The family of this 128-nucleotide RNA sequence from Candidatus Thiodiazotropha endoloripes is "RtT RNA". It scores 61 bits against the family's covariance model. Rfam describes the family as follows. This family represents a bacterial cis-regulatory element known as RtT RNA. The exact function of RtT is unknown although it is thought that it may be involved in changing the cellular response in relation to amino acid starvation.
RNA sequence: UAAAACCACCCCGGAUGGAGGAUUUGAACCGAUCAGAGGUUCGACGACCGAGCAUAGCGAGGGCGAUCAGCUUCAGCUGACCCCGAAGGGGCGAGGCCACUGGCCGAGUAAUCCUCCAUCCCCAGCCA
Numbered sequence: 001u002a003a004a005a006c007c008a009c010c011c012c013g014g015a016u017g018g019a020g021g022a023u024u025u026g027a028a029c030c031g032a033u034c035a036g037a038g039g040u041u042c043g044a045c046g047a048c049c050g051a052g053c054a055u056a057g058c059g060a061g062g063g064c065g066a067u068c069a070g071c072u073u074c075a076g077c078u079g080a081c082c083c084c085g086a087a088g089g090g091g092c093g094a095g096g097c098c099a100c101u102g103g104c105c106g107a108g109u110a111a112u113c114c115u116c117c118a119u120c121c122c123c124a125g126c127c128a
Stems, first nucleotide, its partner, number of pairs: 015119007023111001030093002033091002040087004049059002067080005
Dot-bracket structure: ..............(((((((.(......((.((.....((((.....((.......)).......(((((....)))))...))))..)))).................).))))))).........
Record summary:
The source organism's lineage runs through Bacteria, Gammaproteobacteria, Chromatiales, Sedimenticolaceae and Candidatus Thiodiazotropha. Pairs were carried over by alignment from the consensus structure, which is taken from published work.